[Rfam]
RNA sequence: CAAAGCAAGCAGAAGCGCCCGCUUCUCACCUGAUUGACGCUAUGUGUAGUUGCCAGGUAUGAUUGGGAUUCAUGAAUGUGAAUGAUCAAAGUGUGGGCGUGUUGCGUCUACACUUUUUUUCUGCU
Dot-bracket structure: ..........((((((....)))))).(((.....(((((.....)).)))....))).................................(((((((((...))))))))).............
The family of this 125-nucleotide RNA from Alkalihalobacillus trypoxylicola is "Ribosomal protein L20 leader". A reference for the family is Zengel and Lindahl (1994), "Diverse mechanisms for regulating ribosomal protein synthesis in Escherichia coli", Prog Nucleic Acid Res Mol Biol. Rfam links the family to the GO term regulation of gene expression. From the family's description: This family is a putative r-protein leader autoregulatory structure found in B. subtilis and other low-GC Gram-positive bacteria.